[Rfam]
The family of this 96-nucleotide sequence from Gossypium stocksii is "Plastid-rps12 3UTR RNA". By type it is a cis-regulatory element. Pairs were carried over by alignment from the consensus structure, which was predicted with LocARNA.
RNA sequence: GGUUUUCAUUGGCGGAAAUCCAGUUUUGGAAUUUAAGAUGAGAAAAAAUUCCCCAUUAGUAGCAAAUGUUUAUCCAUUAAGUGGGGAAAAUCCUAU
Number, nucleotide and partner (000 for none) at each position: 001g000002g000003u000004u000005u000006u000007c000008a000009u023010u022011g021012g020013c000014g000015g000016a000017a000018a000019u000020c012021c011022a010023g009024u000025u000026u000027u000028g000029g000030a000031a000032u000033u000034u000035a000036a000037g000038a000039u000040g000041a000042g000043a000044a000045a000046a000047a000048a000049u000050u000051c086052c085053c084054c083055a077056u076057u000058a000059g073060u072061a071062g070063c000064a000065a000066a000067u000068g000069u000070u062071u061072a060073u059074c000075c000076a056077u055078u000079a000080a000081g000082u000083g054084g053085g052086g051087a000088a000089a000090a000091u000092c000093c000094u000095a000096u000